[Rfam]
RNA sequence: CCGCCGCUGCGCGACUGGCGAUGAGGGGCUGAAGCCCCGAGGUGGACCACCACCGGGAAGCGCGGCCGGUCACGCCCUGUGGCCGCCUUGAGUCGUUCGCCUGGGCCACCUGC
Dot-bracket structure: ...(.(((((((..(([[[[[....................((((....))))..))..))))))).).......................(((..]]]]]..))).......
Numbered sequence: 001c002c003g004c005c006g007c008u009g010c011g012c013g014a015c016u017g018g019c020g021a022u023g024a025g026g027g028g029c030u031g032a033a034g035c036c037c038c039g040a041g042g043u044g045g046a047c048c049a050c051c052a053c054c055g056g057g058a059a060g061c062g063c064g065g066c067c068g069g070u071c072a073c074g075c076c077c078u079g080u081g082g083c084c085g086c087c088u089u090g091a092g093u094c095g096u097u098c099g100c101c102u103g104g105g106c107c108a109c110c111u112g113c
Stems, first nucleotide, its partner, number of pairs: 004068001006066007015057002017101005042053004092106003